[Rfam]
RNA sequence: GUCUUCUAUCCUUCAUUCCACCGGAGUCUGUUUCUUCUAAUCAAUCAGAUUUCAGUGGUGUGAAGAGUAAGAAGCA
Numbered sequence: 001g002u003c004u005u006c007u008a009u010c011c012u013u014c015a016u017u018c019c020a021c022c023g024g025a026g027u028c029u030g031u032u033u034c035u036u037c038u039a040a041u042c043a044a045u046c047a048g049a050u051u052u053c054a055g056u057g058g059u060g061u062g063a064a065g066a067g068u069a070a071g072a073a074g075c076a
Stems, first nucleotide, its partner, number of pairs: 011065006019057003023053004028048003

Record summary:
A member of the RNA family "mir-205 microRNA precursor family" from Scleropages formosus, 76 nucleotides long. A reference for the family is Lim et al. (2003), "Vertebrate microRNA genes", Science. Pairs were carried over by alignment from the consensus structure, which was predicted with RNAalifold. The organism belongs to Scleropages, within Eukaryota. A search with the family's covariance model found it, with a score of 78 bits. Rfam 15.1 lists 1,154 matches to the family in 646 species.